[Rfam]
Shown here is a 150-nucleotide RNA from Paraburkholderia humisilvae, a member of the family "Group II catalytic intron D1-D4-7". Lineage of the source: Bacteria > Pseudomonadati > Pseudomonadota > Burkholderiales > Paraburkholderia. Pairs were carried over by alignment from the consensus structure. On this family, see Lehmann and Schmidt, Crit Rev Biochem Mol Biol 2003: "Group II introns: structure and catalytic versatility of large natural ribozymes". Rfam links the family to the GO term Group II intron splicing.
RNA sequence: CCUGUUGUACGACCAGCAGUUGCCUGGCCGGACAUGCGUUCCUGGUAACGGGAGGGUGUGAAGCUCUGGCAACAACGUACCUCUCGAUUGACGAAUCACCCCGGCGACGGGGAAGGAAUCGGCACUGCCAGCCGCCGUGCAGUGUGAGGU
Dot-bracket structure: .((((((......))))))........((((((((((.((((((....)))))).)))))....))))).......................((.(.....((....)).......).))...(((((..........))))).......
Numbered sequence: 001c002c003u004g005u006u007g008u009a010c011g012a013c014c015a016g017c018a019g020u021u022g023c024c025u026g027g028c029c030g031g032a033c034a035u036g037c038g039u040u041c042c043u044g045g046u047a048a049c050g051g052g053a054g055g056g057u058g059u060g061a062a063g064c065u066c067u068g069g070c071a072a073c074a075a076c077g078u079a080c081c082u083c084u085c086g087a088u089u090g091a092c093g094a095a096u097c098a099c100c101c102c103g104g105c106g107a108c109g110g111g112g113a114a115g116g117a118a119u120c121g122g123c124a125c126u127g128c129c130a131g132c133c134g135c136c137g138u139g140c141a142g143u144g145u146g147a148g149g150u
Stems, first nucleotide, its partner, number of pairs: 002019006028069005033060005039054006093120002096117001102109002124143005